Description: A member of the RNA family "MIR2118 microRNA precursor family" from Panicum virgatum, 166 nucleotides long. Rfam 15.1 lists 2,377 matches to the family in 45 species. NCBI's taxonomy places the organism under Eukaryota, Viridiplantae, Poales, Poaceae, Panicum sect. Hiantes. A search with the family's covariance model found it, with a score of 88 bits. A reference for the family is Xue et al. (2009), "Characterization and expression profiles of miRNAs in rice seeds", Nucleic Acids Res.

[Rfam]
Nucleotides: 166
Stems, first nucleotide, its partner, number of pairs: 009157005015152003021148002026143001028141006035134001037132001038130009049118002052115001054114006
Number, partner (000 for none) and nucleotide at each position: 001000g002000c003000c004000a005000a006000g007000a008000a009157g010156a011155g012154g013153a014000a015152g016151a017150a018000u019000g020000a021148g022147a023000u024000g025000g026143c027000c028141u029140g030139a031138g032137a033136g034000c035134a036000g037132u038130g039129g040128a041127a042126u043125g044124g045123g046122a047000a048000c049118a050117u051000g052115g053000u054114g055113g056112a057111a058110a059109g060000g061000c062000a063000a064000a065000c066000u067000u068000g069000u070000c071000u072000g073000u074000a075000u076000u077000c078000c079000u080000c081000c082000a083000a084000c085000g086000a087000u088000g089000g090000a091000g092000g093000u094000u095000g096000a097000a098000u099000u100000u101000g102000g103000u104000u105000u106000g107000g108000g109059c110058u111057u112056u113055c114054c115052c116000a117050g118049u119000u120000c121000c122046u123045c124044c125043c126042a127041u128040u129039c130038c131000u132037a133000u134035u135000a136033c137032u138031c139030u140029u141028g142000a143026g144000c145000a146000c147022u148021c149000c150017u151016u152015u153013u154012c155011c156010u157009c158000c159000u160000u161000u162000u163000u164000g165000c166000u